[Rfam]
RNA sequence: UUGCAUUCUUAAACUGUCUUGGUGGCUUCCUUCAAUGUGCUUCCAAGAUAUGAGUGAAUGCUAGAGAAAUUGCAGGGGAGUCCAAAGGGCUGCGCUUCUAUGGCUCAGUUUUAUUUAAUACCUGCGACACAAUUU
Numbered sequence: 001u002u003g004c005a006u007u008c009u010u011a012a013a014c015u016g017u018c019u020u021g022g023u024g025g026c027u028u029c030c031u032u033c034a035a036u037g038u039g040c041u042u043c044c045a046a047g048a049u050a051u052g053a054g055u056g057a058a059u060g061c062u063a064g065a066g067a068a069a070u071u072g073c074a075g076g077g078g079a080g081u082c083c084a085a086a087g088g089g090c091u092g093c094g095c096u097u098c099u100a101u102g103g104c105u106c107a108g109u110u111u112u113a114u115u116u117a118a119u120a121c122c123u124g125c126g127a128c129a130c131a132a133u134u135u
Stems, first nucleotide, its partner, number of pairs: 003061004008054004017048006024041003065135003070127007086112007094104002
RNA: Small nucleolar RNA SNORA14